[Rfam]
RNA sequence: UGGACUGGUCGAAAGACCAUGGUUCACCUGGUGGCGGGGAUAUACCCC
Numbered sequence: 001u002g003g004a005c006u007g008g009u010c011g012a013a014a015g016a017c018c019a020u021g022g023u024u025c026a027c028c029u030g031g032u033g034g035c036g037g038g039g040a041u042a043u044a045c046c047c048c
Base pairs, nucleotide, nucleotide: 001026002025003024004023005022006021007018008017009016010015

This 48-nucleotide sequence belongs to the Rfam family "DUF3800-XI RNA". The sequence is in the family's curated seed alignment. Rfam describes the family as follows. Actinobacteria, Firmicutes, Proteobacteria, Spirochaetes (1 example). Pairs were carried over by alignment from the consensus structure, which is taken from published work.